[Rfam]
RNA sequence: UAAAAGUCCCAGAUAGCAGCCAUGAUCCAUCCCGUGUAAAACACGGUCUGUUUCAUGGAUAUUAGAUGGGCUAAACUGUAUGAGCAAGUAGGGCGUUUGCCUAGAUUGCUCAUACAGGUGGCGAUUGCGAGAGCACCAGAGUGCCAAGCAAUCGACUUUUA
Number, nucleotide and partner (000 for none) at each position: 001u161002a160003a159004a158005a157006g156007u155008c070009c069010c068011a067012g000013a000014u000015a063016g062017c000018a060019g000020c058021c057022a056023u055024g054025a053026u000027c000028c050029a049030u000031c000032c046033c045034g044035u043036g042037u000038a000039a000040a000041a000042c036043a035044c034045g033046g032047u000048c000049u029050g028051u000052u000053u025054c024055a023056u022057g021058g020059a000060u018061a000062u016063u015064a000065g000066a000067u011068g010069g009070g008071c000072u000073a000074a119075a000076c117077u116078g115079u114080a113081u112082g000083a000084g109085c108086a107087a106088g000089u000090a000091g102092g101093g100094c099095g000096u000097u000098u000099g094100c093101c092102u091103a000104g000105a000106u087107u086108g085109c084110u000111c000112a081113u080114a079115c078116a077117g076118g000119u074120g000121g000122c154123g153124a152125u151126u150127g149128c148129g000130a000131g000132a000133g144134c143135a142136c141137c000138a000139g000140a000141g136142u135143g134144c133145c000146a000147a000148g128149c127150a126151a125152u124153c123154g122155a007156c006157u005158u004159u003160u002161a001

Clostridiales-1 RNA: a 161-nucleotide RNA sequence from Clostridiales bacterium CHKCI001. A search with the family's covariance model found it, with a score of 71 bits. The organism belongs to Eubacteriales, within Bacteria. The family's RNA type in Rfam is small RNA.